[Rfam]
RNA: Small nucleolar RNA U19
RNA sequence: AUCUGGCUUAGUUAGGAGGCAGAAAUUAAACUAUGUGAACCCAAAAGAUUGGGUCUUUUGGAACUCACUUAUACCAAGGUCUUUUGAGUGGACUCUUUUGGUAUUUUUCAUCAAUUGUCCUUCAAGCAGCUUUGGACAUUU
Number, nucleotide and partner (000 for none) at each position: 001a000002u000003c000004u021005g020006g000007c018008u017009u016010a000011g000012u000013u000014a000015g000016g009017a008018g007019g000020c005021a004022g000023a000024a000025a000026u000027u000028a000029a000030a000031c000032u000033a000034u000035g000036u000037g065038a000039a000040c061041c060042c000043a000044a000045a057046a056047g055048a054049u053050u000051g000052g000053g049054u048055c047056u046057u045058u000059u000060g041061g040062a000063a000064c000065u037066c000067a000068c000069u000070u000071a000072u000073a000074c135075c134076a133077a132078g131079g130080u129081c000082u000083u126084u125085u124086g123087a000088g122089u000090g120091g119092a118093c117094u000095c000096u114097u000098u000099u000100g000101g000102u000103a000104u000105u000106u000107u000108u000109c000110a000111u000112c000113a000114a096115u000116u000117g093118u092119c091120c090121u000122u088123c086124a085125a084126g083127c000128a000129g080130c079131u078132u077133u076134g075135g074136a000137c000138a000139u000140u000141u000